Purine riboswitch aptamer: a 102-nucleotide RNA from Mesobacillus persicus. The match comes from Rfam's covariance-model search (86 bits). Pairs were carried over by alignment from the consensus structure, which is taken from published work.
RNA sequence: AUUCUAAAAUACUUAGUACCUUGUAUAUGUUCAAGAAUAUGGCUUGAACGUUUCUACCAUGCUUCCGUAAAAUGCAUGACUACAGGGAAAGAAACUCGUCUA
Numbered sequence: 001a002u003u004c005u006a007a008a009a010u011a012c013u014u015a016g017u018a019c020c021u022u023g024u025a026u027a028u029g030u031u032c033a034a035g036a037a038u039a040u041g042g043c044u045u046g047a048a049c050g051u052u053u054c055u056a057c058c059a060u061g062c063u064u065c066c067g068u069a070a071a072a073u074g075c076a077u078g079a080c081u082a083c084a085g086g087g088a089a090a091g092a093a094a095c096u097c098g099u100c101u102a
Stems, first nucleotide, its partner, number of pairs: 019087007029049007058078005064072001